RNA: mir-4524 microRNA precursor family
Organism: Piliocolobus tephrosceles
RNA sequence: AUUCUUUGGAAGGAUAGCAGCAUGAGCCUGUCUCAAAAUAAUUCUGCAAUGAGAUGGGCUUAUGCUGCUAUCCUUCCAAAGAGG
Numbered sequence: 001a002u003u004c005u006u007u008g009g010a011a012g013g014a015u016a017g018c019a020g021c022a023u024g025a026g027c028c029u030g031u032c033u034c035a036a037a038a039u040a041a042u043u044c045u046g047c048a049a050u051g052a053g054a055u056g057g058g059c060u061u062a063u064g065c066u067g068c069u070a071u072c073c074u075u076c077c078a079a080a081g082a083g084g
Stems, first nucleotide, its partner, number of pairs: 003082005009076017027058009